Shown here is a 93-nucleotide RNA, a member of the family "GA-cis RNA". The family's consensus secondary structure is taken from published work.
RNA sequence: AUCAGGAGGUCCCUAAACGAUGUGGAGCAUCCUUUUUUUGCAUGGGACCGACGAACUGCCUCCGAAGCUUUAGCUGAGGUGGCGCACCAUAAU
Numbered sequence: 001a002u003c004a005g006g007a008g009g010u011c012c013c014u015a016a017a018c019g020a021u022g023u024g025g026a027g028c029a030u031c032c033u034u035u036u037u038u039u040g041c042a043u044g045g046g047a048c049c050g051a052c053g054a055a056c057u058g059c060c061u062c063c064g065a066a067g068c069u070u071u072a073g074c075u076g077a078g079g080u081g082g083c084g085c086a087c088c089a090u091a092a093u
Base pairs, nucleotide, nucleotide: 008049009048010047011046012045013044017034019031020030021029022028058083059082060081062079063078066075067074